Notes: ZMP/ZTP riboswitch aptamer (pfl RNA motif): an 83-nucleotide sequence from Streptosporangium carneum.
[Rfam]
RNA sequence: CGUCUAAAGCGCGACUGGCGCAUUGGGUGGGAGAGACCACCGGGGAGCGGAAACAGCGGAGGCCGUACGCCUGGGUCUCCGCA
Numbered sequence: 001c002g003u004c005u006a007a008a009g010c011g012c013g014a015c016u017g018g019c020g021c022a023u024u025g026g027g028u029g030g031g032a033g034a035g036a037c038c039a040c041c042g043g044g045g046a047g048c049g050g051a052a053a054c055a056g057c058g059g060a061g062g063c064c065g066u067a068c069g070c071c072u073g074g075g076u077c078u079c080c081g082c083a
Stems, first nucleotide, its partner, number of pairs: 003052001005050001010049003015044002017071004027040004060078005

About this RNA:
The family's consensus secondary structure is taken from published work.